[Rfam]
RNA sequence: AAGAUUCACUAAGCGCCAGAGCUUGAUCGCUACGGAGAAAUUAGAUCAAGCUGACGAGGUGGAGGUGUUCGAAUGUUCGGCGGGGGCCUCCCGGUGACGCAUCAAACCGUGAAGCAGAAUUUAAAAGUAGAGAGUGAUCUCUGCGACAAAGAUUCUGUUUGGUGCAUAU
Numbered sequence: 001a002a003g004a005u006u007c008a009c010u011a012a013g014c015g016c017c018a019g020a021g022c023u024u025g026a027u028c029g030c031u032a033c034g035g036a037g038a039a040a041u042u043a044g045a046u047c048a049a050g051c052u053g054a055c056g057a058g059g060u061g062g063a064g065g066u067g068u069u070c071g072a073a074u075g076u077u078c079g080g081c082g083g084g085g086g087c088c089u090c091c092c093g094g095u096g097a098c099g100c101a102u103c104a105a106a107c108c109g110u111g112a113a114g115c116a117g118a119a120u121u122u123a124a125a126a127g128u129a130g131a132g133a134g135u136g137a138u139c140u141c142u143g144c145g146a147c148a149a150a151g152a153u154u155c156u157g158u159u160u161g162g163u164g165c166a167u168a169u
Base pairs, nucleotide, nucleotide: 020052021051022050023049024048025047026046027045028044061091062090063089064088065087069080070079071078072077092109093108094107095106096103113159114158115157116156117155118154119153127144128143129142130141131140132139133138
glmS glucosamine-6-phosphate activated ribozyme aptamer: a 169-nucleotide sequence from Paenibacillus nuruki.
Gene Ontology terms of the family: regulation of gene expression and catalytic activity.
Rfam classes the family as a riboswitch.
Rfam's curators write: This entry contains a glucosamine-6-phosphate activated ribozyme that is found in the mRNA for GlmS. GlmS is an enzyme that uses fructose-6-phosphate and glutamine to generate glucosamine-6-phosphate.